[Rfam]
Annotation: Rfam assigns this 51-nucleotide RNA to the family "6A RNA". Rfam's curators put it in the seed alignment. By type it is a small RNA.
RNA sequence: UGAUCUGCUGGUAGAGCGCCAGCAGCAUAAUCAAAAUAAAGCUCAAUGGGU
Numbered sequence: 001u002g003a004u005c006u007g008c009u010g011g012u013a014g015a016g017c018g019c020c021a022g023c024a025g026c027a028u029a030a031u032c033a034a035a036a037u038a039a040a041g042c043u044c045a046a047u048g049g050g051u
Base pairs, nucleotide, nucleotide: 006024007023008022009021010020011019014044015043016042017041